[Rfam]
RNA sequence: CGCCACUCCGCAGGAGAGAGGGUGCAAAUGCCCCGCCGAAGGCGCAAUCUCCCAUAAACGCUCAGGCACACGUACUGCGGAGCUUCA
Numbered sequence: 001c002g003c004c005a006c007u008c009c010g011c012a013g014g015a016g017a018g019a020g021g022g023u024g025c026a027a028a029u030g031c032c033c034c035g036c037c038g039a040a041g042g043c044g045c046a047a048u049c050u051c052c053c054a055u056a057a058a059c060g061c062u063c064a065g066g067c068a069c070a071c072g073u074a075c076u077g078c079g080g081a082g083c084u085u086c087a
Stems, first nucleotide, its partner, number of pairs: 006082008020033004035067003038063002042061003048054001

The family of this 87-nucleotide RNA from Marinobacter persicus is "Glycine riboswitch aptamer".
The match comes from Rfam's covariance-model search (64 bits).
The literature on the family includes a 2004 paper in Science by Mandal et al., "A glycine-dependent riboswitch that uses cooperative binding to control gene expression".
The source organism's lineage runs through Bacteria, Pseudomonadota, Gammaproteobacteria, Pseudomonadales and Marinobacter.